[Rfam]
RNA sequence: GGACAUAAACGCGCUCGUAAUACACGGAUCGGACCCGGGGGCGGUACCCGGCGGCUCCACCAAUAUCCUUCAUUUGGGGAUCAUGGGGCCGAAACAGGAUCGACGAACGCUUAAAGGGGUUAGCUUUGUCUCGGUGAGGUACCACCGUUAUCGGUCCGAAACGUACAGUUGCAAAUGACAACCGUGCUCCGGUGGCCGUUGCUGCGUAA
Numbered sequence: 001g002g003a004c005a006u007a008a009a010c011g012c013g014c015u016c017g018u019a020a021u022a023c024a025c026g027g028a029u030c031g032g033a034c035c036c037g038g039g040g041g042c043g044g045u046a047c048c049c050g051g052c053g054g055c056u057c058c059a060c061c062a063a064u065a066u067c068c069u070u071c072a073u074u075u076g077g078g079g080a081u082c083a084u085g086g087g088g089c090c091g092a093a094a095c096a097g098g099a100u101c102g103a104c105g106a107a108c109g110c111u112u113a114a115a116g117g118g119g120u121u122a123g124c125u126u127u128g129u130c131u132c133g134g135u136g137a138g139g140u141a142c143c144a145c146c147g148u149u150a151u152c153g154g155u156c157c158g159a160a161a162c163g164u165a166c167a168g169u170u171g172c173a174a175a176u177g178a179c180a181a182c183c184g185u186g187c188u189c190c191g192g193u194g195g196c197c198g199u200u201g202c203u204g205c206g207u208a209a
Stems, first nucleotide, its partner, number of pairs: 001131005013120004025109002029106003035051005052091007132147004
RNA: permuted transfer-messenger RNA